[Rfam]
RNA sequence: AGCAGCCCCGUCAAAUUCAGUCCCUGCCUUCUCCGUGGUGGGGACCGGCCAAACGGCUGCCACAGCAACUUCUGUGGUCCCUGAGCCCCGUGUCCCUUUCCCAUGGGACCCCAGGGAUAAAAUCACACCAUGGACAUCA
Number, nucleotide and partner (000 for none) at each position: 001a000002g060003c059004a058005g057006c000007c000008c000009c000010g000011u000012c000013a000014a000015a000016u000017u000018c047019a000020g045021u044022c043023c042024c041025u040026g039027c038028c037029u000030u000031c000032u000033c000034c000035g000036u000037g028038g027039u026040g025041g024042g023043g022044a021045c020046c000047g018048g000049c000050c000051a000052a000053a000054c000055g000056g000057c005058u004059g003060c002061c000062a000063c000064a000065g000066c000067a000068a000069c000070u000071u000072c000073u000074g131075u130076g129077g128078u127079c000080c000081c000082u000083g000084a000085g000086c116087c115088c114089c000090g112091u000092g000093u000094c000095c000096c000097u000098u000099u000100c000101c000102c000103a000104u000105g000106g000107g000108a000109c000110c000111c000112c090113a000114g088115g087116g086117a000118u000119a000120a000121a000122a000123u000124c000125a000126c000127a078128c077129c076130a075131u074132g000133g000134a000135c000136a000137u000138c000139a000
Shown here is a 139-nucleotide RNA sequence from Pedionomus torquatus, a member of the family "Small nucleolar RNA SNORA5". Pairs were carried over by alignment from the consensus structure, which was predicted with RNAfold. By type it is an H/ACA-box small nucleolar RNA. Rfam's curators write: ACA5 is a member of the H/ACA class of snoRNA that guide the sites of modification of uridines to pseudouridines. Rfam links the family to the GO terms RNA processing and nucleolus.